[Rfam]
RNA: MIR7502 microRNA precursor family
Organism: Gossypium aridum
RNA sequence: UGUUAAAAUAUCAAUCUAUUUGUAUUGUUUAAAAUGGGUGUGAUUGAUAGAAUAACCAAAUAGUAACACGUGGCAUGCUACGUGUGCCUCAUGCAGAGAUACAAUGACCAAUUUAUAAUAGUAGAAAUUGAUGAGAUUUUUAACA
Numbered sequence: 001u002g003u004u005a006a007a008a009u010a011u012c013a014a015u016c017u018a019u020u021u022g023u024a025u026u027g028u029u030u031a032a033a034a035u036g037g038g039u040g041u042g043a044u045u046g047a048u049a050g051a052a053u054a055a056c057c058a059a060a061u062a063g064u065a066a067c068a069c070g071u072g073g074c075a076u077g078c079u080a081c082g083u084g085u086g087c088c089u090c091a092u093g094c095a096g097a098g099a100u101a102c103a104a105u106g107a108c109c110a111a112u113u114u115a116u117a118a119u120a121g122u123a124g125a126a127a128u129u130g131a132u133g134a135g136a137u138u139u140u141u142a143a144c145a
Stems, first nucleotide, its partner, number of pairs: 002144007011135001014132003018128004023123004028118002032114002